[Rfam]
Rfam assigns this 106-nucleotide sequence from Drosophila albomicans to the family "mir-274 microRNA precursor family". The source organism's lineage runs through Eukaryota, Dicondylia, Neoptera, Drosophilidae and Drosophila. Pairs were carried over by alignment from the consensus structure, which was predicted with RNAalifold. Rfam links the family to the GO terms miRNA-mediated post-transcriptional gene silencing and RISC complex. For this family Rfam cites "Computational identification of Drosophila microRNA genes" (Lai et al., Genome Biol, 2003).
RNA sequence: UGUGUUGCAGUUUCGGUUUGUGACCGACACUAACGGGUAUUUGUCCACGUGAUCCUAAUGCUUGCUUUACUCGUUUCUGCGAUCACAAAUUCUGAAAUUGCAACGA
Numbered sequence: 001u002g003u004g005u006u007g008c009a010g011u012u013u014c015g016g017u018u019u020g021u022g023a024c025c026g027a028c029a030c031u032a033a034c035g036g037g038u039a040u041u042u043g044u045c046c047a048c049g050u051g052a053u054c055c056u057a058a059u060g061c062u063u064g065c066u067u068u069a070c071u072c073g074u075u076u077c078u079g080c081g082a083u084c085a086c087a088a089a090u091u092c093u094g095a096a097a098u099u100g101c102a103a104c105g106a
Stems, first nucleotide, its partner, number of pairs: 003105008013095003017089007025081002028079002032075008